The record is a 171-nucleotide sequence from Peptoclostridium acidaminophilum, which matches "Lysine riboswitch aptamer" in Rfam.

RNA sequence: ACCUUGUUUAGAGGAGCUUUAAUUAAGAGUAUUUCCGCGGAGCCGGCAAGCUGUGAAGAGGAAUGAAAGGAAUUGAAGCCGAAGGAGGAUUAGUGCCAUCUAAUCAUCCUGGCUGUGCGUAGAACAUGCGUAUGGUUGUCAUCCGAAUCAGGAUGGAGAGCUAAAAGGGUU
Numbered sequence: 001a002c003c004u005u006g007u008u009u010a011g012a013g014g015a016g017c018u019u020u021a022a023u024u025a026a027g028a029g030u031a032u033u034u035c036c037g038c039g040g041a042g043c044c045g046g047c048a049a050g051c052u053g054u055g056a057a058g059a060g061g062a063a064u065g066a067a068a069g070g071a072a073u074u075g076a077a078g079c080c081g082a083a084g085g086a087g088g089a090u091u092a093g094u095g096c097c098a099u100c101u102a103a104u105c106a107u108c109c110u111g112g113c114u115g116u117g118c119g120u121a122g123a124a125c126a127u128g129c130g131u132a133u134g135g136u137u138g139u140c141a142u143c144c145g146a147a148u149c150a151g152g153a154u155g156g157a158g159a160g161c162u163a164a165a166a167g168g169g170u171u
Base pairs, nucleotide, nucleotide: 007165008164009163010162011161016079017078018077019076020075021074022073023072024071033063034062035061036060038058083110084109085108086107088105089104090103091102092101093100111137112136113135114134115133116132117131118130119129120128121127139156140155141154142153143152144151